[Rfam]
RNA sequence: AAUAUAGGAACGAAGCCUAAGGUCGCCACAUCGUGUGGCAACGGCUUAGUGACCAACAUCCUGUUGG
Numbered sequence: 001a002a003u004a005u006a007g008g009a010a011c012g013a014a015g016c017c018u019a020a021g022g023u024c025g026c027c028a029c030a031u032c033g034u035g036u037g038g039c040a041a042c043g044g045c046u047u048a049g050u051g052a053c054c055a056a057c058a059u060c061c062u063g064u065u066g067g
Base pairs, nucleotide, nucleotide: 011049013047014046015045016044017043025039026038027037028036029035053067054066055065056064057063
RNA: Bacillaceae-1 RNA